[Rfam]
RNA sequence: AGUCUGUUUCAGGGCGGGGUGUAAUUCCCCACUGGUAGUGAUGCGUAUUUACGAUAAGUCUACGAACCCCAUGGGUCGAUUCGGUGUGAAUCCGAAACCAACGGUAUAGUCCGGAUGAAAGAAACCAGAA
Numbered sequence: 001a002g003u004c005u006g007u008u009u010c011a012g013g014g015c016g017g018g019g020u021g022u023a024a025u026u027c028c029c030c031a032c033u034g035g036u037a038g039u040g041a042u043g044c045g046u047a048u049u050u051a052c053g054a055u056a057a058g059u060c061u062a063c064g065a066a067c068c069c070c071a072u073g074g075g076u077c078g079a080u081u082c083g084g085u086g087u088g089a090a091u092c093c094g095a096a097a098c099c100a101a102c103g104g105u106a107u108a109g110u111c112c113g114g115a116u117g118a119a120a121g122a123a124a125c126c127a128g129a130a
Stems, first nucleotide, its partner, number of pairs: 003128001006125005017029003031110002033100002035063004058098002066076003080096005102113003

This 130-nucleotide sequence from Eubacterium aggregans belongs to the Rfam family "FMN riboswitch aptamer (RFN element)".
It scores 108 bits against the family's covariance model.
NCBI's taxonomy places the organism under Bacteria, Clostridia, Eubacteriales, Eubacteriaceae, Eubacterium.
Pairs were carried over by alignment from the consensus structure, which is taken from published work.
Its family is annotated with FMN binding in the Gene Ontology.